[Rfam]
RNA sequence: AUAUGACAUAGAGGUCGCAACCAACAAGAGUACUUAGCUAAGUCGGCAGACAGCGCGGUUAAGGAAAGGGAAGGUUGCCGAAAUGUGUUUUGUGGCAAUGAAACACGUUGGUCUAGACGUGAACAACGGUUAGACUGUCGCAGCAAAAUCUGUCGGCUGCGGAGCGCUAUCGACAAC
Numbered sequence: 001a002u003a004u005g006a007c008a009u010a011g012a013g014g015u016c017g018c019a020a021c022c023a024a025c026a027a028g029a030g031u032a033c034u035u036a037g038c039u040a041a042g043u044c045g046g047c048a049g050a051c052a053g054c055g056c057g058g059u060u061a062a063g064g065a066a067a068g069g070g071a072a073g074g075u076u077g078c079c080g081a082a083a084u085g086u087g088u089u090u091u092g093u094g095g096c097a098a099u100g101a102a103a104c105a106c107g108u109u110g111g112u113c114u115a116g117a118c119g120u121g122a123a124c125a126a127c128g129g130u131u132a133g134a135c136u137g138u139c140g141c142a143g144c145a146a147a148a149u150c151u152g153u154c155g156g157c158u159g160c161g162g163a164g165c166g167c168u169a170u171c172g173a174c175a176a177c
Stems, first nucleotide, its partner, number of pairs: 008170004017078006025070001033063007082109012110136007118128003138162007

Annotation
Shown here is a 177-nucleotide RNA sequence from Weissella cibaria, a member of the family "Lysine riboswitch aptamer". Pairs were carried over by alignment from the consensus structure, which is taken from published work. Taxonomically the source falls in Weissella (Bacteria, Bacilli, Lactobacillales, Lactobacillaceae).